This 212-nucleotide sequence from Pseudoalteromonas translucida belongs to the Rfam family "HNH endonuclease-associated RNA and ORF (HEARO) RNA". On this family, see Weinberg et al., Nature 2009: "Exceptional structured noncoding RNAs revealed by bacterial metagenome analysis". Taxonomically the source falls in Pseudoalteromonas translucida (Bacteria, Pseudomonadati, Gammaproteobacteria, Pseudoalteromonadaceae).
[Rfam]
RNA sequence: GUCAACUACUCACCCCUAAAGGGAUGAGCUUGUAAAAGCGCUUGUUGACCAGACCACUAACUGAGGAUUAGAAAUGUUAGUAAACGAUAAUUUAGAUGUAGAAACCUUGGAAUGCCGCCUCAGUUCCAAGCUCUUUCGUGGCACUGUAAACAGUCCUAUUGAGUUAGGGGCAGUCAACCACGUUGCGAAGCUAAAUUAUCUGGUCGAGAGGA
Numbered sequence: 001g002u003c004a005a006c007u008a009c010u011c012a013c014c015c016c017u018a019a020a021g022g023g024a025u026g027a028g029c030u031u032g033u034a035a036a037a038g039c040g041c042u043u044g045u046u047g048a049c050c051a052g053a054c055c056a057c058u059a060a061c062u063g064a065g066g067a068u069u070a071g072a073a074a075u076g077u078u079a080g081u082a083a084a085c086g087a088u089a090a091u092u093u094a095g096a097u098g099u100a101g102a103a104a105c106c107u108u109g110g111a112a113u114g115c116c117g118c119c120u121c122a123g124u125u126c127c128a129a130g131c132u133c134u135u136u137c138g139u140g141g142c143a144c145u146g147u148a149a150a151c152a153g154u155c156c157u158a159u160u161g162a163g164u165u166a167g168g169g170g171c172a173g174u175c176a177a178c179c180a181c182g183u184u185g186c187g188a189a190g191c192u193a194a195a196u197u198a199u200c201u202g203g204u205c206g207a208g209a210g211g212a
Stems, first nucleotide, its partner, number of pairs: 001049006008042001010028001015022002029038003052205003057080005086200010102136002106130008118211004138181004145176002150174002153171003156167003